[Rfam]
skipping-rope RNA: a 92-nucleotide RNA sequence.

RNA sequence: UUUAUUUAAGGGUGGAAAGGGCCCCGCCAGGCCUUGUAAUUAUAUUACGAGGUGAGAAAAUCGGAUGCAGAGUUGCCCGUCUGCUAAAUAAA
Dot-bracket structure: ((((((((..(((((...[[[[.))))).(((((((((((...))))))))))........)....(((((...]]]].)))))))))))))
The sequence is in the family's curated seed alignment.